[Rfam]
RNA sequence: ACCCUGCUGCCGGACUGACCGGCAACCGAUAGCGAGAAUCGGGCAGGGU
Numbered sequence: 001a002c003c004c005u006g007c008u009g010c011c012g013g014a015c016u017g018a019c020c021g022g023c024a025a026c027c028g029a030u031a032g033c034g035a036g037a038a039u040c041g042g043g044c045a046g047g048g049u
Stems, first nucleotide, its partner, number of pairs: 001049007011021002017033001023036001026042005
RNA: DUF2693-FD RNA